Shown here is a 69-nucleotide RNA sequence from Nocardia mangyaensis, a member of the family "ASpks TB sRNA". A reference for the family is Arnvig and Young (2009), "Identification of small RNAs in Mycobacterium tuberculosis", Mol Microbiol. By type it is an antisense RNA. Pairs were carried over by alignment from the consensus structure, which is taken from published work. Taxonomically the source falls in Nocardia (Bacteria, Actinomycetota, Actinomycetes, Nocardiaceae).
RNA sequence: CUUCAACGAUCCGAUCCGCAACGGCUCCGCGCGAUCCUGCCCAUAGGCGGCAAUCAGCGCCUGCGCCUC
Numbered sequence: 001c002u003u004c005a006a007c008g009a010u011c012c013g014a015u016c017c018g019c020a021a022c023g024g025c026u027c028c029g030c031g032c033g034a035u036c037c038u039g040c041c042c043a044u045a046g047g048c049g050g051c052a053a054u055c056a057g058c059g060c061c062u063g064c065g066c067c068u069c
Base pairs, nucleotide, nucleotide: 014026016024017023028065029064030063032059033058038053041050042049